[Rfam]
RNA sequence: UCAAAGUGAUGAAAACAACCAUAACAUUCGCAGUUUCCUCGGUAGCUUACACUUAGAACCCUUUGAGUAAGCCAGUGACCGCCCUAGACCUUCCUAGGAUGUCUGAUUGA
Dot-bracket structure: ((((........................................((((((................))))))..................................))))
Shown here is a 110-nucleotide sequence from Petasospora fabianii, a member of the family "Small nucleolar RNA SNORD14". NCBI's taxonomy places the organism under Eukaryota, saccharomyceta, Saccharomycetes, Phaffomycetales, Petasospora. The family's RNA type in Rfam is C/D-box small nucleolar RNA. The base pairs follow the family's consensus structure, which was predicted with PFOLD.